The record is a 172-nucleotide RNA sequence from Histophilus somni, which matches "Lysine riboswitch aptamer" in Rfam. Pairs were carried over by alignment from the consensus structure, which is taken from published work. Riboswitches are metabolite binding domains within certain messenger RNAs that serve as precision sensors for their corresponding targets. Allosteric rearrangement of mRNA structure is mediated by ligand binding, and this results in modulation of gene expression. The source organism's lineage runs through Bacteria, Pseudomonadati, Pseudomonadota, Gammaproteobacteria and Histophilus somni.
RNA sequence: UACAUAUGUAGAGGUGCGGCUGUUAUAAGUAAUUUUUUGAGUGGAUAACGAUGAAAAAAAUGAAAGGAAUAGUUGCCGAAAUCAAUUAAAAGUCAUUUUAAUUGGUUGGGGGCGUAUUCGAAAGAAACGUCACUGUCAUAGUAUUUAUCCACUAUGGAGCGCUACUGGUUAG
Dot-bracket structure: .......((((....(((((((((.......(((((((................)))))))......)))))))))...((((((((((((....))))))))))))((.(((((.((.....)).))))).)).(((((((........)))))))....)))).......